A member of the RNA family "TPP riboswitch aptamer (THI element)" from Rhodococcus ruber, 113 nucleotides long. Lineage of the source: Bacteria > Bacillati > Actinomycetes > Mycobacteriales > Rhodococcus ruber. The base pairs follow the family's consensus structure, which is taken from published work. About the family: Vitamin B(1) in its active form thiamin pyrophosphate (TPP) is an essential coenzyme that is synthesised by coupling of pyrimidine and thiazole moieties in bacteria.
RNA sequence: ACGAAUCGACACGGGAGUCCCGGGGAUCGCGGGGCUGAGAGGGGGCCUGCCGGCCCCGACCGUCAGCACCUGAACCGGAUCAUGCCGGCGCAGGGAGUGAGGUGGACGAACUG
Numbered sequence: 001a002c003g004a005a006u007c008g009a010c011a012c013g014g015g016a017g018u019c020c021c022g023g024g025g026a027u028c029g030c031g032g033g034g035c036u037g038a039g040a041g042g043g044g045g046c047c048u049g050c051c052g053g054c055c056c057c058g059a060c061c062g063u064c065a066g067c068a069c070c071u072g073a074a075c076c077g078g079a080u081c082a083u084g085c086c087g088g089c090g091c092a093g094g095g096a097g098u099g100a101g102g103u104g105g106a107c108g109a110a111c112u113g
Base pairs, nucleotide, nucleotide: 006101009098010097011063012062013061014060017035018034019033020032021031042057043056044055045054046053069094070093071092072091075088076087077086078085